This 301-nucleotide sequence from Geotrypetes seraphini belongs to the Rfam family "Metazoan signal recognition particle RNA". It scores 257 bits against the family's covariance model.
RNA sequence: GCUGGGCUCUGUGGCGUGGGCCUGUAAUCCCUGCAUCUGGGGAGGCUGAGGCUGGUGGAUUGCUUGAGCUUGGGGGUUUCUGCAUCGUAUCAAGCUAUGCUGAGCAGGUGUCCACACUAAGCUGGGUAUCAACAUGGGGUUUCUGGGGGAGCCCAGGAGCCCCAGGUUGUGUAAUGAGGGGUGAACCGGCCCAGGCUGGAAACAGAGCAGGUCAAAGCCCCCAUACUCAGCAGUAGUGGGAUUGCACCUGUGAAUAGAUGGUGCAGUGCAGCCUGGGUAAGACAGUGAGACCCAGUCUCCU
Numbered sequence: 001g002c003u004g005g006g007c008u009c010u011g012u013g014g015c016g017u018g019g020g021c022c023u024g025u026a027a028u029c030c031c032u033g034c035a036u037c038u039g040g041g042g043a044g045g046c047u048g049a050g051g052c053u054g055g056u057g058g059a060u061u062g063c064u065u066g067a068g069c070u071u072g073g074g075g076g077u078u079u080c081u082g083c084a085u086c087g088u089a090u091c092a093a094g095c096u097a098u099g100c101u102g103a104g105c106a107g108g109u110g111u112c113c114a115c116a117c118u119a120a121g122c123u124g125g126g127u128a129u130c131a132a133c134a135u136g137g138g139g140u141u142u143c144u145g146g147g148g149g150a151g152c153c154c155a156g157g158a159g160c161c162c163c164a165g166g167u168u169g170u171g172u173a174a175u176g177a178g179g180g181g182u183g184a185a186c187c188g189g190c191c192c193a194g195g196c197u198g199g200a201a202a203c204a205g206a207g208c209a210g211g212u213c214a215a216a217g218c219c220c221c222c223a224u225a226c227u228c229a230g231c232a233g234u235a236g237u238g239g240g241a242u243u244g245c246a247c248c249u250g251u252g253a254a255u256a257g258a259u260g261g262u263g264c265a266g267u268g269c270a271g272c273c274u275g276g277g278u279a280a281g282a283c284a285g286u287g288a289g290a291c292c293c294a295g296u297c298u299c300c301u
Base pairs, nucleotide, nucleotide: 001046002045003044004023005022006021007020008019009018028043029042030041048299049298050297051296052295053294054293055292060288061287062286063285064284068278069277070276071275072274073273074272080271081270082269083268084267085266087264088263089262090261091260092259095257096256097255098254100252104251105250106249107248108247109246110245111244112240113239115238116237117236118235119234121231122230123229124228125227126226127225128224129223130169131168132167133166135164136163137162138161139160140159141158142157143156144155145154146153147152170176171175178221179220180219181218182217188213189212190211191210196205197204198203
Rfam describes the family as follows. The signal recognition particle (SRP) is a universally conserved ribonucleoprotein.